Annotation
Rfam assigns this 84-nucleotide RNA sequence from Domibacillus epiphyticus to the family "c-di-GMP-I riboswitch aptamer". GEMM was predicted in a large-scale screen for bacterial structured RNA regulatory elements. Taxonomically the source falls in Domibacillus (Bacteria, Bacillati, Bacilli, Caryophanales).
[Rfam]
RNA sequence: CUACGAUAGUGGCAAACUUAUCGAAAGGUAAGGACGCAAAGCUACGGGUCUAAGGCUUAAAGCUAUGAUCGCCGGGUUGCCGAA
Numbered sequence: 001c002u003a004c005g006a007u008a009g010u011g012g013c014a015a016a017c018u019u020a021u022c023g024a025a026a027g028g029u030a031a032g033g034a035c036g037c038a039a040a041g042c043u044a045c046g047g048g049u050c051u052a053a054g055g056c057u058u059a060a061a062g063c064u065a066u067g068a069u070c071g072c073c074g075g076g077u078u079g080c081c082g083a084a
Base pairs, nucleotide, nucleotide: 012037013036017032018031019030020029021028022027040078041077042076043075045074046073047072048069049068050067055063056062057061